This 134-nucleotide sequence from Myotis brandtii belongs to the Rfam family "Small nucleolar RNA SNORA1".
Its family is annotated with nucleolus and RNA processing in the Gene Ontology.
Rfam's curators write: ACA1 is a member of the H/ACA class of snoRNA that guide the sites of modification of uridines to pseudouridines.
The base pairs follow the family's consensus structure, which was predicted with PFOLD.

RNA sequence: AGUUACUGUAGAAAUUUAAAAAUAAGAAGAUAAUACUGGGGUCCAGAAAUUGUUAAGGUAGCUACAUUGAGACACAGGUUAUGCUUCUAUCACAGUAAUUUACUGCAGUGGUGACAAUGAGACCUAUAACAUUA
Numbered sequence: 001a002g003u004u005a006c007u008g009u010a011g012a013a014a015u016u017u018a019a020a021a022a023u024a025a026g027a028a029g030a031u032a033a034u035a036c037u038g039g040g041g042u043c044c045a046g047a048a049a050u051u052g053u054u055a056a057g058g059u060a061g062c063u064a065c066a067u068u069g070a071g072a073c074a075c076a077g078g079u080u081a082u083g084c085u086u087c088u089a090u091c092a093c094a095g096u097a098a099u100u101u102a103c104u105g106c107a108g109u110g111g112u113g114a115c116a117a118u119g120a121g122a123c124c125u126a127u128a129a130c131a132u133u134a
Stems, first nucleotide, its partner, number of pairs: 002062003006058002023045001026042001074127001076125003088113006